[Rfam]
RNA sequence: AGGGGCCCAGUGCCCCGGUCCCGCUCCGGUACCUGAUACGGCCGGAGUCUG
Numbered sequence: 001a002g003g004g005g006c007c008c009a010g011u012g013c014c015c016c017g018g019u020c021c022c023g024c025u026c027c028g029g030u031a032c033c034u035g036a037u038a039c040g041g042c043c044g045g046a047g048u049c050u051g
Stems, first nucleotide, its partner, number of pairs: 002016005021051001023049001024047007
Shown here is a 51-nucleotide RNA sequence from Rubrivivax gelatinosus, a member of the family "L17-Actino-Proteobacteria ribosomal protein leader". Pairs were carried over by alignment from the consensus structure, which is taken from published work. The organism belongs to Rubrivivax gelatinosus, within Bacteria. It is annotated as a cis-regulatory leader. The literature on the family includes a 2020 paper in BMC Microbiol by Eckert and Weinberg, "Discovery of 20 novel ribosomal leader candidates in bacteria and archaea".